Shown here is a 150-nucleotide sequence from Aerobium aerolatum, a member of the family "speF leader". NCBI's taxonomy places the organism under Bacteria, Alphaproteobacteria, Hyphomicrobiales, Aerobium, Aerobium aerolatum. It scores 84 bits against the family's covariance model. Rfam classes the family as a cis-regulatory leader. Gene Ontology term of the family: regulation of gene expression.
RNA sequence: UGCCGGUCGUCCAAAGAUCGGGGUUACUGAAGAGGCACACCUUCAUUGCCGGCAGUGCGGACCGGGGGUUCUCCCAUCCAAGCCAAGGCAGACAAAGCGAGUAUUCGUCGCAAGACGGGUGCUCACCGCCACGUGAAGUGCGUUCGAGGU
Numbered sequence: 001u002g003c004c005g006g007u008c009g010u011c012c013a014a015a016g017a018u019c020g021g022g023g024u025u026a027c028u029g030a031a032g033a034g035g036c037a038c039a040c041c042u043u044c045a046u047u048g049c050c051g052g053c054a055g056u057g058c059g060g061a062c063c064g065g066g067g068g069u070u071c072u073c074c075c076a077u078c079c080a081a082g083c084c085a086a087g088g089c090a091g092a093c094a095a096a097g098c099g100a101g102u103a104u105u106c107g108u109c110g111c112a113a114g115a116c117g118g119g120u121g122c123u124c125a126c127c128g129c130c131a132c133g134u135g136a137a138g139u140g141c142g143u144u145c146g147a148g149g150u
Stems, first nucleotide, its partner, number of pairs: 001023001003021006034050004057129003083091001101111002